[Rfam]
RNA sequence: AACUGCCAUCGUGACCAGAGCAAAAGUGCUUACGCUGCAGCCCUGUCAGAUUCUAAUGGAUCUGCAAAUUCUACU
Dot-bracket structure: ..........[.[.[...((.(.(((((.......))).].]]...(((((((....)))))))....)).).))
RNA: Mammalian CPEB3 ribozyme
Organism: Crocodylus porosus